[Rfam]
Nucleotides: 362
Stems, first nucleotide, its partner, number of pairs: 020040006102341001104339004140179004147173008199323001201321008215306004224298004229293004
Number, partner (000 for none) and nucleotide at each position: 001000a002000a003000g004000a005000g006000g007000a008000g009000a010000u011000u012000u013000u014000a015000g016000a017000u018000g019000u020040u021039u022038u023037u024036u025035g026000g027000u028000a029000g030000g031000u032000c033000g034000a035025c036024a037023g038022a039021a040020a041000u042000a043000g044000c045000u046000c047000u048000u049000u050000g051000a052000g053000g054000u055000a056000a057000g058000a059000u060000g061000g062000g063000a064000g065000u066000a067000a068000g069000a070000a071000g072000a073000a074000a075000a076000g077000u078000u079000a080000g081000u082000g083000g084000g085000u086000u087000u088000u089000a090000g091000u092000u093000a094000c095000u096000u097000a098000u099000u100000g101000u102341g103000a104339a105338a106337u107336g108000u109000a110000a111000a112000u113000u114000g115000c116000u117000c118000u119000c120000u121000u122000u123000u124000g125000u126000g127000u128000a129000a130000a131000g132000c133000a134000c135000a136000u137000c138000a139000a140179g141178c142177a143176u144000g145000u146000a147173g148172c149171g150170u151169u152168u153167u154166a155000g156000u157000u158000a159000c160000u161000u162000a163000u164000u165000g166154u167153g168152a169151a170150a171149u172148g173147u174000a175000a176143a177142u178141g179140c180000g181000a182000u183000u184000u185000u186000u187000g188000u189000c190000a191000a192000a193000g194000g195000g196000a197000c198000a199323g200000c201321g202320a203319u204318g205317g206316g207315u208314u209000a210000c211000a212000a213000g214000u215306u216305u217304u218303a219000g220000u221000u222000a223000c224298u225297u226296a227295u228000u229293g230292u231291g232290a233000a234000a235000u236000g237000u238000a239000a240000a241000u242000u243000u244000a245000c246000c247000a248000c249000c250000a251000a252000a253000g254000u255000c256000c257000c258000u259000a260000c261000a262000c263000u264000c265000a266000a267000u268000a269000c270000c271000a272000c273000c274000a275000a276000a277000g278000c279000g280000u281000u282000u283000u284000a285000g286000u287000u288000a289000c290232u291231u292230a293229u294000u295227g296226u297225g298224a299000a300000a301000u302000g303218u304217a305216a306215a307000u308000c309000g310000c311000u312000c313000u314208g315207a316206c317205c318204u319203g320202u321201u322000c323199c324000u325000u326000g327000u328000g329000c330000a331000a332000c333000a334000c335000u336107c337106g338105u339104u340000a341102c342000a343000g344000u345000u346000u347000u348000a349000g350000u351000u352000a353000c354000u355000u356000a357000u358000u359000g360000u361000g362000a
Description
Listeria sRNA rliB: a 362-nucleotide RNA sequence from Listeria monocytogenes. Lineage of the source: Bacteria > Bacillati > Caryophanales > Listeria > Listeria monocytogenes.